Notes
This 73-nucleotide RNA sequence from Sphingobium cupriresistens belongs to the Rfam family "Makes More Granules Regulator RNA (mmgR)". The family's RNA type in Rfam is small RNA. Rfam describes the family as follows. SuhB later renamed mmgR (makes more granules regulator) was a putative non-coding RNA found multiple times in the Agrobacterium tumefaciens genome and related alpha-proteobacteria. The pairing is the family consensus, mapped onto this sequence. For this family Rfam cites "Evidence for a second class of S-adenosylmethionine riboswitches and other regulatory RNA motifs in alpha-proteobacteria" (Corbino et al., Genome Biol, 2005).

RNA sequence: AGACUGUGCCUUUCAGGCAUCCUCUCCUAAAACUUUCGGGCCGAUCUUGUGAUCGGCCUUUUUUUUGUCACGC
Number, nucleotide and partner (000 for none) at each position: 001a000002g000003a000004c000005u000006g000007u000008g018009c017010c016011u015012u000013u000014c000015a011016g010017g009018c008019a000020u000021c000022c000023u000024c000025u000026c000027c000028u000029a000030a000031a000032a000033c000034u000035u000036u000037c000038g000039g058040g057041c056042c055043g054044a053045u052046c051047u000048u000049g000050u000051g046052a045053u044054c043055g042056g041057c040058c039059u000060u000061u000062u000063u000064u000065u000066u000067g000068u000069c000070a000071c000072g000073c000